[Rfam]
RNA: small Cajal body-specific RNA 17
Organism: Callithrix jacchus
RNA sequence: GGCUUGAGCCACCGCGCCCGGCUGAGCCUGCAGUAUUUUUCUUAUAUAAUCAGGUCCUACUGUGGGCAGUGCUGCUUGCCCAGAGCCUGAGAGGAUUAUGAAAUCAUGGCAAGGGUAGUGAGGCAAGGGGACCCAGCA
Numbered sequence: 001g002g003c004u005u006g007a008g009c010c011a012c013c014g015c016g017c018c019c020g021g022c023u024g025a026g027c028c029u030g031c032a033g034u035a036u037u038u039u040u041c042u043u044a045u046a047u048a049a050u051c052a053g054g055u056c057c058u059a060c061u062g063u064g065g066g067c068a069g070u071g072c073u074g075c076u077u078g079c080c081c082a083g084a085g086c087c088u089g090a091g092a093g094g095a096u097u098a099u100g101a102a103a104u105c106a107u108g109g110c111a112a113g114g115g116u117a118g119u120g121a122g123g124c125a126a127g128g129g130g131a132c133c134c135a136g137c138a
Stems, first nucleotide, its partner, number of pairs: 002137002005135002008132001010130001012128002014124002018120001050090006057083002062079007